[Rfam]
RNA: Iron response element I
RNA sequence: CUGUGUCUGGCUUCAACAGUGUUUGGACGGAGUAG
Numbered sequence: 001c002u003g004u005g006u007c008u009g010g011c012u013u014c015a016a017c018a019g020u021g022u023u024u025g026g027a028c029g030g031a032g033u034a035g
Stems, first nucleotide, its partner, number of pairs: 001035004006031003010028001012027005017021001